[Rfam]
RNA sequence: UACUACGAACCGGGGAUCAUGGUAGAAGCGUUCACGUCGCGAUCCCUGUCAGGCUUUAAACAAUGCCUAGAAUUCUAAC
Numbered sequence: 001u002a003c004u005a006c007g008a009a010c011c012g013g014g015g016a017u018c019a020u021g022g023u024a025g026a027a028g029c030g031u032u033c034a035c036g037u038c039g040c041g042a043u044c045c046c047u048g049u050c051a052g053g054c055u056u057u058a059a060a061c062a063a064u065g066c067c068u069a070g071a072a073u074u075c076u077a078a079c
Stems, first nucleotide, its partner, number of pairs: 013046006021079001023077005028040003051068004056063002
RNA: Mammalian CPEB3 ribozyme
Organism: Muraenolepis orangiensis